[Rfam]
RNA sequence: UCUGCGACAAUCUCGCACUUGGGGCGCACGUACAGUGUACUCGUUACACAAUUCUGCCCCGGGAAGGUCUGAGACGAGCCUCGAAUGCUCCAGGAGGGCGCUCGCAUUUUGCGAGGCAAGAACACCAGAAAUCUGCGAGCGGAGUUUCGAAGCCGGGGAUUGUCCUGAGGCAUAGGCGAUGGAACUUUCUCGUUGGGAUUUCUUGUGGCUGGCAUUUUUAGUUUAAUCUGCGGGCUGGCGUUACGCUAGAACUCAAUUCAGACUAAUCUGUCGCAGA
Numbered sequence: 001u002c003u004g005c006g007a008c009a010a011u012c013u014c015g016c017a018c019u020u021g022g023g024g025c026g027c028a029c030g031u032a033c034a035g036u037g038u039a040c041u042c043g044u045u046a047c048a049c050a051a052u053u054c055u056g057c058c059c060c061g062g063g064a065a066g067g068u069c070u071g072a073g074a075c076g077a078g079c080c081u082c083g084a085a086u087g088c089u090c091c092a093g094g095a096g097g098g099c100g101c102u103c104g105c106a107u108u109u110u111g112c113g114a115g116g117c118a119a120g121a122a123c124a125c126c127a128g129a130a131a132u133c134u135g136c137g138a139g140c141g142g143a144g145u146u147u148c149g150a151a152g153c154c155g156g157g158g159a160u161u162g163u164c165c166u167g168a169g170g171c172a173u174a175g176g177c178g179a180u181g182g183a184a185c186u187u188u189c190u191c192g193u194u195g196g197g198a199u200u201u202c203u204u205g206u207g208g209c210u211g212g213c214a215u216u217u218u219u220a221g222u223u224u225a226a227u228c229u230g231c232g233g234g235c236u237g238g239c240g241u242u243a244c245g246c247u248a249g250a251a252c253u254c255a256a257u258u259c260a261g262a263c264u265a266a267u268c269u270g271u272c273g274c275a276g277a
Base pairs, nucleotide, nucleotide: 001277002276003275004274007271008270009269012234013233014232015231016230017229021060022059023058024057025056035049036048037047038046039045069261070260071259072258073257077210078209079208080207086100087099088098089097090096101115102114103113104112105111116206117205118204119203120202121201122200136192137191138190235249236248237247238246239245240244
Rfam assigns this 277-nucleotide RNA sequence from Tenebrio molitor to the family "Nuclear RNase P". Ribonuclease P (RNase P) is a ubiquitous endoribonuclease, found in archaea, bacteria and eukarya as well as chloroplasts and mitochondria. Its best characterised activity is the generation of mature 5'-ends of tRNAs by cleaving the 5'-leader elements of precursor-tRNAs. A search with the family's covariance model found it, with a score of 153 bits. The base pairs follow the family's consensus structure, which is taken from published work. The organism belongs to Tenebrio, within Eukaryota.